[Rfam]
RNA sequence: CUCUUAUCCAGAGAGGUGGAGGGACCGGCCCUGUGAAACCUCGGCAACCUGGCGUACCUCAGCGACGACGCUGAUCGGCCAAGGUGCCAAGUCCGGCAGAGUUAUCUGGAAGAUGAGAG
Numbered sequence: 001c002u003c004u005u006a007u008c009c010a011g012a013g014a015g016g017u018g019g020a021g022g023g024a025c026c027g028g029c030c031c032u033g034u035g036a037a038a039c040c041u042c043g044g045c046a047a048c049c050u051g052g053c054g055u056a057c058c059u060c061a062g063c064g065a066c067g068a069c070g071c072u073g074a075u076c077g078g079c080c081a082a083g084g085u086g087c088c089a090a091g092u093c094c095g096g097c098a099g100a101g102u103u104a105u106c107u108g109g110a111a112g113a114u115g116a117g118a119g
Stems, first nucleotide, its partner, number of pairs: 001119008013042005021031003025096004043088004048084002050081004092111001097108004